[Rfam]
RNA sequence: GCCCCGCCGAUUUAACCGGCGAUUAAGCUUUCCGAACUAUUACUGGCGUCGGUCCAGUUUUGACCGCGAGUGGCUUCUGUCCACUCUGUUUGACGCAUCCCUGUCUACACUUUUCGAGCCGCCUCCGGGCGGCUCUUUUUUU
Numbered sequence: 001g002c003c004c005c006g007c008c009g010a011u012u013u014a015a016c017c018g019g020c021g022a023u024u025a026a027g028c029u030u031u032c033c034g035a036a037c038u039a040u041u042a043c044u045g046g047c048g049u050c051g052g053u054c055c056a057g058u059u060u061u062g063a064c065c066g067c068g069a070g071u072g073g074c075u076u077c078u079g080u081c082c083a084c085u086c087u088g089u090u091u092g093a094c095g096c097a098u099c100c101c102u103g104u105c106u107a108c109a110c111u112u113u114u115c116g117a118g119c120c121g122c123c124u125c126c127g128g129g130c131g132g133c134u135c136u137u138u139u140u141u142u
Base pairs, nucleotide, nucleotide: 001047002046003045005018006017019041024039025038029034051065052064053063054062068086069085070084071083072082073081092105093104094103095102116135117134118133119132120131121130122129123128

The family of this 142-nucleotide RNA from Ancylobacter sp. TS-1 is "Alphaproteobacterial sRNA BjrC1505". Taxonomically the source falls in Ancylobacter (Bacteria, Alphaproteobacteria, Hyphomicrobiales, Xanthobacteraceae). Pairs were carried over by alignment from the consensus structure.